[Rfam]
RNA sequence: UGUUUCUCCGACCCGGUACUCAGUGUAGGGUCUGUGUGCGAUCUAACUACAGCUACAUCUGAUUACUGGGUCAGGGAUCACAUCA
Numbered sequence: 001u002g003u004u005u006c007u008c009c010g011a012c013c014c015g016g017u018a019c020u021c022a023g024u025g026u027a028g029g030g031u032c033u034g035u036g037u038g039c040g041a042u043c044u045a046a047c048u049a050c051a052g053c054u055a056c057a058u059c060u061g062a063u064u065a066c067u068g069g070g071u072c073a074g075g076g077a078u079c080a081c082a083u084c085a
Base pairs, nucleotide, nucleotide: 013069014068015067016066017065018064020062021061022060023058024057025056026055027054028053032052033051034050035049